[Rfam]
RNA sequence: UCCCGAUAAUAGCAAACCAUUCGAAAGGGUGGGACGCAAAGUCACAGGCCUAAGGAAUUUCUAUGGCGGCUGGAUUGCCGAA
Numbered sequence: 001u002c003c004c005g006a007u008a009a010u011a012g013c014a015a016a017c018c019a020u021u022c023g024a025a026a027g028g029g030u031g032g033g034a035c036g037c038a039a040a041g042u043c044a045c046a047g048g049c050c051u052a053a054g055g056a057a058u059u060u061c062u063a064u065g066g067c068g069g070c071u072g073g074a075u076u077g078c079c080g081a082a
Stems, first nucleotide, its partner, number of pairs: 012037002017032006040076004045072003048067003055061002
Dot-bracket structure: ...........((...((((((....))))))...))..((((.((((((....((...))...)))..)))))))......
This 82-nucleotide sequence from Dethiosulfatibacter aminovorans belongs to the Rfam family "c-di-GMP-I riboswitch aptamer". NCBI's taxonomy places the organism under Bacteria, Bacillati, Tissierellia, Dethiosulfatibacter, Dethiosulfatibacter aminovorans.